[Rfam]
RNA sequence: UGGCGCCCAGUGUGAGGCUCCUGGCAUGGGGGAGUCAACGAGGGAGCCGUUCGAGAAAGCCGGCUAAAAGUGAAAGCAAAUUCAACCAAAGACUGCGGCAAAAGGAAAAACAAACUAAAUCAAGGACUAAAGCUAAAAGCAAAAGCACAUUAAAUCAAGGACCGAGGCCUGCACGGAUGACUACCCGACAUCCCGCACGAGUCACGGUGAGUGAACAGUGACCCCAUUCCCUUUCCUGGACAUGGGUCAAGCAUUGAGCAAACACAAAUUGUUCAUAGAAGGCCUUAUAAAGGCAUUAAAGACAAGAGAGGUAAGGGUUAGAACAAAAGAAUUAUUGUAGUAUUUUCAAUUUAUCCAUAAGGUUUGCCCUU
Numbered sequence: 001u002g003g004c005g006c007c008c009a010g011u012g013u014g015a016g017g018c019u020c021c022u023g024g025c026a027u028g029g030g031g032g033a034g035u036c037a038a039c040g041a042g043g044g045a046g047c048c049g050u051u052c053g054a055g056a057a058a059g060c061c062g063g064c065u066a067a068a069a070g071u072g073a074a075a076g077c078a079a080a081u082u083c084a085a086c087c088a089a090a091g092a093c094u095g096c097g098g099c100a101a102a103a104g105g106a107a108a109a110a111c112a113a114a115c116u117a118a119a120u121c122a123a124g125g126a127c128u129a130a131a132g133c134u135a136a137a138a139g140c141a142a143a144a145g146c147a148c149a150u151u152a153a154a155u156c157a158a159g160g161a162c163c164g165a166g167g168c169c170u171g172c173a174c175g176g177a178u179g180a181c182u183a184c185c186c187g188a189c190a191u192c193c194c195g196c197a198c199g200a201g202u203c204a205c206g207g208u209g210a211g212u213g214a215a216c217a218g219u220g221a222c223c224c225c226a227u228u229c230c231c232u233u234u235c236c237u238g239g240a241c242a243u244g245g246g247u248c249a250a251g252c253a254u255u256g257a258g259c260a261a262a263c264a265c266a267a268a269u270u271g272u273u274c275a276u277a278g279a280a281g282g283c284c285u286u287a288u289a290a291a292g293g294c295a296u297u298a299a300a301g302a303c304a305a306g307a308g309a310g311g312u313a314a315g316g317g318u319u320a321g322a323a324c325a326a327a328a329g330a331a332u333u334a335u336u337g338u339a340g341u342a343u344u345u346u347c348a349a350u351u352u353a354u355c356c357a358u359a360a361g362g363u364u365u366g367c368c369c370u371u
Base pairs, nucleotide, nucleotide: 006032007031008030012027013026014025037051038050039049040048083211085208086207091203094197095196096195097194098193219249220248221247223246224245225244226243255298256297257296258294259293306346307345308344309343311341312340315333316332318330319329359370361368362367
Dot-bracket structure: .....(((...(((..........)))..)))....((((.......))))...............................(.((....(..(((((..............................................................................................))))).....)...))..).......(((.((((................))))))).....(((((.................................)).))).......((((.((..((.((.........)).))......)).))))............(.((....)).).

Mason-Pfizer monkey virus packaging signal: a 371-nucleotide RNA from Cavia porcellus. This family represents a group of sequences that are related to the Mason-Pfizer monkey virus (MPMV) packaging signal. The packaging signal is located in the 5' UTR and is required for specific RNA encapsidation. The base pairs follow the family's consensus structure, which was predicted with PFOLD. Taxonomically the source falls in Cavia (Eukaryota, Metazoa, Theria, Euarchontoglires).